[Rfam]
RNA sequence: GACGGGCGAGGUCGGAAAGGCUCCCGACGCUCCCGCGAGGGAAUCUGAGAUGCAGGAUACGCCUCCCUGCCGUUGCU
Number, nucleotide and partner (000 for none) at each position: 001g000002a077003c000004g000005g074006g073007c072008g071009a000010g000011g028012u027013c026014g025015g024016a000017a000018a000019g063020g062021c061022u000023c000024c015025c014026g013027a012028c011029g000030c047031u042032c041033c040034c039035g000036c000037g000038a000039g034040g033041g032042a031043a000044u000045c000046u000047g030048a000049g000050a000051u000052g070053c069054a068055g067056g066057a000058u000059a000060c000061g021062c020063c019064u000065c000066c056067c055068u054069g053070c052071c008072g007073u006074u005075g000076c000077u002
Rfam assigns this 77-nucleotide RNA sequence to the family "skipping-rope RNA". The family's RNA type in Rfam is small RNA.